[Rfam]
Background
Shown here is a 335-nucleotide sequence from Peptoniphilus indolicus, a member of the family "Bacterial RNase P class A". A search with the family's covariance model found it, with a score of 277 bits. The base pairs follow the family's consensus structure, which is taken from published work. Rfam classes the family as a ribozyme. Ribonuclease P (RNase P) is a ubiquitous endoribonuclease, found in archaea, bacteria and eukarya as well as chloroplasts and mitochondria. Its best characterised activity is the generation of mature 5'-ends of tRNAs by cleaving the 5'-leader elements of precursor-tRNAs. Cellular RNase Ps are ribonucleoproteins. Its Rfam clan is "RNaseP clan". NCBI's taxonomy places the organism under Bacteria, Bacillati, Bacillota, Tissierellia, Peptoniphilus indolicus.
RNA sequence: AGAGUAAGUUAUCCAAUCGCAUCAAUCAUUUGAUGAGGAAAGUCUGCGCUCCAUAGAGCAGGAUGCCAGUUAACGACUGGUAGGGGCGACCCUAAGGCUAGUGCAACAGAGAUAUACCGCCUUAAAAAGGUAAGGGUGGAAAGGCGAGGUAAGAGCUCACCAGGUUUUCAGUGAUGAAAAUGCUAUGUAAACCCCAUUCGGAGCAAGACCAAAAUAGGACAAAACAGAUGUUGCUCGCAUCUGCCGGUAGGUAGGUCGCUUGAGUUAUUUGGUGACAAAUAAUCUAGAUAGAUGAUUGGACUAGACAGAACGCAGCUUAUAAACUUACUCUUUUU
Numbered sequence: 001a002g003a004g005u006a007a008g009u010u011a012u013c014c015a016a017u018c019g020c021a022u023c024a025a026u027c028a029u030u031u032g033a034u035g036a037g038g039a040a041a042g043u044c045u046g047c048g049c050u051c052c053a054u055a056g057a058g059c060a061g062g063a064u065g066c067c068a069g070u071u072a073a074c075g076a077c078u079g080g081u082a083g084g085g086g087c088g089a090c091c092c093u094a095a096g097g098c099u100a101g102u103g104c105a106a107c108a109g110a111g112a113u114a115u116a117c118c119g120c121c122u123u124a125a126a127a128a129g130g131u132a133a134g135g136g137u138g139g140a141a142a143g144g145c146g147a148g149g150u151a152a153g154a155g156c157u158c159a160c161c162a163g164g165u166u167u168u169c170a171g172u173g174a175u176g177a178a179a180a181u182g183c184u185a186u187g188u189a190a191a192c193c194c195c196a197u198u199c200g201g202a203g204c205a206a207g208a209c210c211a212a213a214a215u216a217g218g219a220c221a222a223a224a225c226a227g228a229u230g231u232u233g234c235u236c237g238c239a240u241c242u243g244c245c246g247g248u249a250g251g252u253a254g255g256u257c258g259c260u261u262g263a264g265u266u267a268u269u270u271g272g273u274g275a276c277a278a279a280u281a282a283u284c285u286a287g288a289u290a291g292a293u294g295a296u297u298g299g300a301c302u303a304g305a306c307a308g309a310a311c312g313c314a315g316c317u318u319a320u321a322a323a324c325u326u327a328c329u330c331u332u333u334u335u
Base pairs, nucleotide, nucleotide: 001331002330003329004328005327006326007325008324009323010322011320012300013299014298015297016296017295018294020035021034022033023032024031025030040318041317042316044315045314046313047312048311049203050202051201052200056236057235058234059233061199062198063197064196065195066080067079068078069077070076081095082093083092084091085090096194097193101192102191103188104187105186117135118134119131120130121129122128123127143161144160146158147157148156163183164181165180166179167178168177169176170175207257208256209255210254215247217245218244227241228240229239230238231237264283265282266281267280268279269278270277271276
Dot-bracket structure: ((((((((((((((((((.((((((....))))))....[[[.[[[[[((((...[[[[.((((((((((.....)))))(((((....)))).)((...(((((...........(((((((...)))))..)).......((.(((.......))).)).((((((((....))))))).)..)))..)))))))))))))...((((....(.((........(((((.]]]])))))..)).)......))))......((((((((....))))))))..........)))))))..........]]]]]]]].).))))))))))....